[Rfam]
Nucleotides: 110
Base pairs, nucleotide, nucleotide: 010094011061012060013059014058017033018032019031020030021029040055041054042053043052044051067091068090069089070088072085073084074083075082
Number, partner (000 for none) and nucleotide at each position: 001000c002000g003000u004000c005000a006000a007000c008000c009000a010094c011061g012060c013059g014058g015000g016000a017033g018032c019031g020030c021029g022000u023000a024000c025000c026000g027000a028000g029021c030020g031019c032018g033017c034000u035000g036000a037000g038000a039000g040055g041054a042053c043052g044051g045000g046000u047000a048000g049000g050000c051044c052043c053042g054041u055040c056000g057000a058014c059013c060012g061011u062000a063000c064000g065000a066000a067091c068090c069089u070088g071000a072085c073084c074083g075082g076000g077000u078000a079000a080000u081000g082075c083074c084073g085072g086000c087000g088070u089069a090068g091067g092000g093000a094010g095000g096000a097000c098000c099000g100000a101000a102000a103000u104000g105000u106000c107000u108000g109000a110000u

TPP riboswitch aptamer (THI element): a 110-nucleotide RNA sequence from Mycolicibacterium duvalii. The family's consensus secondary structure is taken from published work.